[Rfam]
RNA sequence: AGGUAUAAGUAGAAGCCAUCCGCUUCUCACCUUACGCCAAAGGUAGUAAGGUUUCUUCAGGUUAUAGUGGACUUAUGCGGAUGGACUACCAUCCGCUUUUUGUUUUGUAA
Numbered sequence: 001a002g003g004u005a006u007a008a009g010u011a012g013a014a015g016c017c018a019u020c021c022g023c024u025u026c027u028c029a030c031c032u033u034a035c036g037c038c039a040a041a042g043g044u045a046g047u048a049a050g051g052u053u054u055c056u057u058c059a060g061g062u063u064a065u066a067g068u069g070g071a072c073u074u075a076u077g078c079g080g081a082u083g084g085a086c087u088a089c090c091a092u093c094c095g096c097u098u099u100u101u102g103u104u105u106u107g108u109a110a
Base pairs, nucleotide, nucleotide: 011027012026013025014024015023016022029052030051031050034047035046037043038042077096078095079094080093081092082091083090084089

The family of this 110-nucleotide RNA from Caloramator australicus is "Ribosomal protein L20 leader". The family's consensus secondary structure was predicted with CMfinder. The organism belongs to Caloramator australicus, within Bacteria. By type it is a cis-regulatory leader. Rfam describes the family as follows. This family is a putative r-protein leader autoregulatory structure found in B. subtilis and other low-GC Gram-positive bacteria. It is located in the 5' untranslated regions of mRNAs encoding initiation factor 3 followed by ribosomal proteins L35 and L20 (infC-rpmI-rplT). A Rho-independent transcription terminator structure that is probably involved in regulation is included at the 3' end. The literature on the family includes a 1994 paper in Prog Nucleic Acid Res Mol Biol by Zengel and Lindahl, "Diverse mechanisms for regulating ribosomal protein synthesis in Escherichia coli".